[Rfam]
RNA sequence: AGUCCCAUUUUAGUACCUUUCAUUCGCACCAGUAUGAAUGGACGGCUAUGCUAAUGGGAUAGAAAAGACACUGUCACGAUCUGAAGGUGUGGCCGGCUGUCUGUGCACCCCACUUCAUGAAGGGACAGAAUAUUGCAAU
Numbered sequence: 001a002g003u004c005c006c007a008u009u010u011u012a013g014u015a016c017c018u019u020u021c022a023u024u025c026g027c028a029c030c031a032g033u034a035u036g037a038a039u040g041g042a043c044g045g046c047u048a049u050g051c052u053a054a055u056g057g058g059a060u061a062g063a064a065a066a067g068a069c070a071c072u073g074u075c076a077c078g079a080u081c082u083g084a085a086g087g088u089g090u091g092g093c094c095g096g097c098u099g100u101c102u103g104u105g106c107a108c109c110c111c112a113c114u115u116c117a118u119g120a121a122g123g124g125a126c127a128g129a130a131u132a133u134u135g136c137a138a139u
Base pairs, nucleotide, nucleotide: 004058005057006056007055016045017044019042073126074125075124091114092113
This 139-nucleotide sequence from Echeneis naucrates belongs to the Rfam family "Small nucleolar RNA SNORA29". The family is grouped with related families in Rfam's "SNORA20 clan". From the family's description: ACA29 is a member of the H/ACA class of snoRNA that guide the sites of modification of uridines to pseudouridines. The family has 26 seed sequences and 960 matches in Rfam 15.1. Lineage of the source: Eukaryota > Metazoa > Craniata > Carangaria > Echeneis.